[Rfam]
RNA sequence: GCCUACCUAUGAUGAGUUGCGAACUUUAUUGCCUACAUUGUUUGAUCAAUCUUAUGAGAAACUUCUGCAACGUCUGAGGAUGU
Numbered sequence: 001g002c003c004u005a006c007c008u009a010u011g012a013u014g015a016g017u018u019g020c021g022a023a024c025u026u027u028a029u030u031g032c033c034u035a036c037a038u039u040g041u042u043u044g045a046u047c048a049a050u051c052u053u054a055u056g057a058g059a060a061a062c063u064u065c066u067g068c069a070a071c072g073u074c075u076g077a078g079g080a081u082g083u
Stems, first nucleotide, its partner, number of pairs: 001083002004080001006079002

Source information: Rfam assigns this 83-nucleotide RNA from Hordeum vulgare to the family "Small nucleolar RNA SNORD34". Taxonomically the source falls in Hordeum vulgare (Eukaryota, Magnoliopsida, Liliopsida, Poales). The family has 14 seed sequences and 1,319 matches in Rfam 15.1. Rfam describes the family as follows. snoRNA U34 is found in intron 5 of the ribosomal protein L13a gene in humans. The family's RNA type in Rfam is C/D-box small nucleolar RNA. Rfam links the family to the GO terms nucleolus and RNA processing.